[Rfam]
RNA sequence: CCACGCUUGACGGGGUGCCGUUGAAAACGGCUGAGAUCAUGCAGCGCCAGCCGGCGAUGGAGCAUGGAUCCCGUUGAACCUGAACUGGCUAGGACCAGCGUAGGGAUCAAGCGACACGCAGAG
Dot-bracket structure: .....(((((((((.((((((.....)))))......(((((...................))))))..)))).....((((..((((......))))..))))..)))))............